A member of the RNA family "mir-87 microRNA precursor family" from Strigamia maritima, 72 nucleotides long. The family has 44 seed sequences and 420 matches in Rfam 15.1. Lineage of the source: Eukaryota > Metazoa > Chilopoda > Epimorpha > Strigamia. It scores 56 bits against the family's covariance model. On this family, see Sempere et al., Dev Biol 2003: "Temporal regulation of microRNA expression in Drosophila melanogaster mediated by hormonal signals and broad-Complex gene activity".
RNA sequence: GUCUUACGGGCCUGAAUCUUUGUCUCAACCUUGUUUGUACAAAGGUGAGCAAAGUUUCAGGUGUGUUGGCCU
Numbered sequence: 001g002u003c004u005u006a007c008g009g010g011c012c013u014g015a016a017u018c019u020u021u022g023u024c025u026c027a028a029c030c031u032u033g034u035u036u037g038u039a040c041a042a043a044g045g046u047g048a049g050c051a052a053a054g055u056u057u058c059a060g061g062u063g064u065g066u067u068g069g070c071c072u
Stems, first nucleotide, its partner, number of pairs: 003069002006066002010062006018054004024049004029045003